[Rfam]
RNA: Plastid-ccsA-ndhD-1 3UTR RNA
Organism: Passiflora ligularis
Nucleotides: 048
Stems, first nucleotide, its partner, number of pairs: 003048018
Number, partner (000 for none) and nucleotide at each position: 001000u002000g003048u004047g005046a006045g007044a008043a009042c010041c011040u012039u013038u014037u015036g016035a017034a018033u019032c020031a021000a022000g023000u024000a025000a026000u027000a028000u029000a030000g031020u032019g033018a034017u035016u036015c037014a038013a039012a040011a041010g042009g043008u044007u045006c046005u047004c048003a